The record is a 100-nucleotide RNA sequence from Lentilactobacillus curieae, which matches "THF (Tetrahydrofolate) riboswitch aptamer" in Rfam. Its family is annotated with tetrahydrofolate metabolic process in the Gene Ontology. The base pairs follow the family's consensus structure, which is taken from published work. Taxonomically the source falls in Lentilactobacillus (Bacteria, Bacillota, Bacilli, Lactobacillales).
RNA sequence: UUUGGGGUAGGAUAUAUCGCGUUAAGUGUCGGAGGAACGGAAUGUGAACUCCGAACGAAAAGUGAACUUCACUUGCGGUGCUAUAUUCGCAUUCACCAUU
Numbered sequence: 001u002u003u004g005g006g007g008u009a010g011g012a013u014a015u016a017u018c019g020c021g022u023u024a025a026g027u028g029u030c031g032g033a034g035g036a037a038c039g040g041a042a043u044g045u046g047a048a049c050u051c052c053g054a055a056c057g058a059a060a061a062g063u064g065a066a067c068u069u070c071a072c073u074u075g076c077g078g079u080g081c082u083a084u085a086u087u088c089g090c091a092u093u094c095a096c097c098a099u100u
Stems, first nucleotide, its partner, number of pairs: 003098003010088007018080002020077003026056002029054006040094005060074004